[Rfam]
A member of the RNA family "Small nucleolar RNA U109" from Gambusia affinis, 151 nucleotides long. It scores 45 bits against the family's covariance model. It is annotated as an H/ACA-box small nucleolar RNA. The base pairs follow the family's consensus structure, which was predicted with WAR.
RNA sequence: AGGCAUGCUCUGGCCCAAGGCCAUUUUUCGUCCUCUCAGUAUGAAUGUGGAGAGUACGAGUGUAUAGCAUGCUAGAUGAACUUUUGGGAAUUAACAGGGCCACCAGUCUUUCAAGUCCAGGCUGAGUCGGUAGUAUAAUAUUCCCACAGUC
Numbered sequence: 001a002g003g004c005a006u007g008c009u010c011u012g013g014c015c016c017a018a019g020g021c022c023a024u025u026u027u028u029c030g031u032c033c034u035c036u037c038a039g040u041a042u043g044a045a046u047g048u049g050g051a052g053a054g055u056a057c058g059a060g061u062g063u064a065u066a067g068c069a070u071g072c073u074a075g076a077u078g079a080a081c082u083u084u085u086g087g088g089a090a091u092u093a094a095c096a097g098g099g100c101c102a103c104c105a106g107u108c109u110u111u112c113a114a115g116u117c118c119a120g121g122c123u124g125a126g127u128c129g130g131u132a133g134u135a136u137a138a139u140a141u142u143c144c145c146a147c148a149g150u151c
Stems, first nucleotide, its partner, number of pairs: 003072006028054001031051003035047001087144004099131002103126001104124006